Rfam assigns this 101-nucleotide RNA sequence from Sphingomonas sp. AP4-R1 to the family "Repression of heat shock gene expression (ROSE) element". The family's RNA type in Rfam is RNA thermoregulator. Gene Ontology terms of the family: response to temperature stimulus and regulation of translation. The family's consensus secondary structure is taken from published work. Rfam describes the family as follows. This family represents a 5' UTR cis-regulatory element found in heat shock mRNAs and is known as the ROSE (repression of heat shock gene expression) element. The ROSE element is a negative regulator of heat shock gene expression. The secondary structure is thought to be regulated by temperature. This regulation blocks access to the ribosome binding site under normal conditions.

RNA sequence: CCGGACGCUGAAAACCGGGUCCGGUGGACAUUGAGAGCGCCGGCUCUUUCCGGCGCGCCUCAUGCCCGAAUUGCUCAAUCAGGAGGAUUUGGAAAUGAGAA
Numbered sequence: 001c002c003g004g005a006c007g008c009u010g011a012a013a014a015c016c017g018g019g020u021c022c023g024g025u026g027g028a029c030a031u032u033g034a035g036a037g038c039g040c041c042g043g044c045u046c047u048u049u050c051c052g053g054c055g056c057g058c059c060u061c062a063u064g065c066c067c068g069a070a071u072u073g074c075u076c077a078a079u080c081a082g083g084a085g086g087a088u089u090u091g092g093a094a095a096u097g098a099g100a101a
Stems, first nucleotide, its partner, number of pairs: 001024006008018002035058001038055006059099005066092007074085003